[Rfam]
RNA sequence: AAAAGAAAGAACCUGUAGUAAUUUACUACAGGCUGCUUUUACGCAGACCGGUAAACCCGAUCAGCCAAAGCAAUGGGAGAGGAGAAACCGGAGGAAGAACUUAUGGGGAAACGUAAGUCUUCUCCGCGG
Numbered sequence: 001a002a003a004a005g006a007a008a009g010a011a012c013c014u015g016u017a018g019u020a021a022u023u024u025a026c027u028a029c030a031g032g033c034u035g036c037u038u039u040u041a042c043g044c045a046g047a048c049c050g051g052u053a054a055a056c057c058c059g060a061u062c063a064g065c066c067a068a069a070g071c072a073a074u075g076g077g078a079g080a081g082g083a084g085a086a087a088c089c090g091g092a093g094g095a096a097g098a099a100c101u102u103a104u105g106g107g108g109a110a111a112c113g114u115a116a117g118u119c120u121u122c123u124c125c126g127c128g129g
Base pairs, nucleotide, nucleotide: 012032013031014030015029016028017027018026019025034077036075038073043065044064046062047061089126090125091124092123094122095121096120097119099118100117101116102115103114
RNA: ylbH leader